Rfam assigns this 79-nucleotide sequence from Nitrosospira sp. Nl5 to the family "SAH (S-adenosyl-L-homocysteine) riboswitch aptamer". It scores 60 bits against the family's covariance model.

[Rfam]
RNA sequence: CCAGCUGAGGAGCGCUGCAGCGGGCACAGUCCCCGCGAGGCUCGGCAGGAGAGGAUCGUAACAACGGCGCUCGUUCAUU
Number, nucleotide and partner (000 for none) at each position: 001c000002c048003a000004g046005c045006u044007g043008a042009g000010g000011a000012g000013c000014g000015c000016u000017g000018c000019a000020g000021c035022g034023g033024g032025c000026a030027c000028a000029g000030u026031c000032c024033c023034c022035g021036c000037g000038a000039g000040g000041c000042u008043c007044g006045g005046c004047a000048g002049g000050a000051g000052a000053g000054g000055a000056u000057c000058g000059u000060a000061a000062c000063a000064a000065c000066g000067g000068c000069g000070c000071u000072c000073g000074u000075u000076c000077a000078u000079u000